A member of the RNA family "Metazoan signal recognition particle RNA" from Dinothrombium tinctorium, 298 nucleotides long.
RNA sequence: GCCGGGAACAGUGGCGCGUUCCUGUAACUCAAGCGACCGGAGGGCUUAGUAUGUGGAGAGCAGGCCGUUGGGAUCCCUGUCGGUGUGUGUUGCAUGUUGAACGGGUGUCCGCACUAAGCUAUGCGUCAACAUGGUCGUCAGUGGGAAGCCAUCGGUGACCAGGUUGAUUAAAGAGGAGCGCAUGGCUCAGGACUGUAAAGUAGCAGGCAAAAGCUCCCGCGUGAAACAGUAGUGGGAUCGCACCUGUGAAUGCACACUCGACGAUAGCCCGGUCGCGUCUGUUUGACACAAUACUUUU
Numbered sequence: 001g002c003c004g005g006g007a008a009c010a011g012u013g014g015c016g017c018g019u020u021c022c023u024g025u026a027a028c029u030c031a032a033g034c035g036a037c038c039g040g041a042g043g044g045c046u047u048a049g050u051a052u053g054u055g056g057a058g059a060g061c062a063g064g065c066c067g068u069u070g071g072g073a074u075c076c077c078u079g080u081c082g083g084u085g086u087g088u089g090u091u092g093c094a095u096g097u098u099g100a101a102c103g104g105g106u107g108u109c110c111g112c113a114c115u116a117a118g119c120u121a122u123g124c125g126u127c128a129a130c131a132u133g134g135u136c137g138u139c140a141g142u143g144g145g146a147a148g149c150c151a152u153c154g155g156u157g158a159c160c161a162g163g164u165u166g167a168u169u170a171a172a173g174a175g176g177a178g179c180g181c182a183u184g185g186c187u188c189a190g191g192a193c194u195g196u197a198a199a200g201u202a203g204c205a206g207g208c209a210a211a212a213g214c215u216c217c218c219g220c221g222u223g224a225a226a227c228a229g230u231a232g233u234g235g236g237a238u239c240g241c242a243c244c245u246g247u248g249a250a251u252g253c254a255c256a257c258u259c260g261a262c263g264a265u266a267g268c269c270c271g272g273u274c275g276c277g278u279c280u281g282u283u284u285g286a287c288a289c290a291a292u293a294c295u296u297u298u
Stems, first nucleotide, its partner, number of pairs: 001045003004023006028042003048295005053289003058284006064276002067273006077267006084260002087257003091254005097248001101247008109236002112234005118227001120225001122223005127166004132161008141152004168172001175217005185208003192201003
A search with the family's covariance model found it, with a score of 217 bits. Pairs were carried over by alignment from the consensus structure, which is taken from published work. On this family, see Wild et al., Curr Opin Struct Biol 2002: "Towards the structure of the mammalian signal recognition particle".